[Rfam]
RNA: SAM (S-adenosyl methionine) riboswitch aptamer
Organism: Luteimicrobium subarcticum
RNA sequence: GGUCACGAGCGAUCAGCGACACGCCCUCCGCGUGCUGGUCCGGCAACCGCGCCCCUCGCGCACGGUGCCCCAGGAGGAAGACCGGCCCGCCACCGACCGGUGGCGGGAAGAGCGAAGG
Numbered sequence: 001g002g003u004c005a006c007g008a009g010c011g012a013u014c015a016g017c018g019a020c021a022c023g024c025c026c027u028c029c030g031c032g033u034g035c036u037g038g039u040c041c042g043g044c045a046a047c048c049g050c051g052c053c054c055c056u057c058g059c060g061c062a063c064g065g066u067g068c069c070c071c072a073g074g075a076g077g078a079a080g081a082c083c084g085g086c087c088c089g090c091c092a093c094c095g096a097c098c099g100g101u102g103g104c105g106g107g108a109a110g111a112g113c114g115a116a117g118g
Base pairs, nucleotide, nucleotide: 001083002082003081004080009041012039013038014037015036016035017034022032023031042069043068044067047065048064049063051061052060086107087106088105089104090103091102092101093100094099